The family of this 89-nucleotide sequence from Oceanodroma tethys is "Small nucleolar SNORD12/SNORD106". The family is grouped with related families in Rfam's "SNORD12 clan". The family's RNA type in Rfam is C/D-box small nucleolar RNA.
RNA sequence: GCUGGUGCGGGUGGUGGCGGUUUUUUCCCCGUCAGAGCGGCGGUGUUGGUGUCUCCCUGCUCCAGCCAGGUCGGGUCUGAGGCACCGGC
Numbered sequence: 001g002c003u004g005g006u007g008c009g010g011g012u013g014g015u016g017g018c019g020g021u022u023u024u025u026u027c028c029c030c031g032u033c034a035g036a037g038c039g040g041c042g043g044u045g046u047u048g049g050u051g052u053c054u055c056c057c058u059g060c061u062c063c064a065g066c067c068a069g070g071u072c073g074g075g076u077c078u079g080a081g082g083c084a085c086c087g088g089c
Base pairs, nucleotide, nucleotide: 001089002088003087004086005085006084007083008082
Annotation:
Pairs were carried over by alignment from the consensus structure, which was predicted with RNAalifold.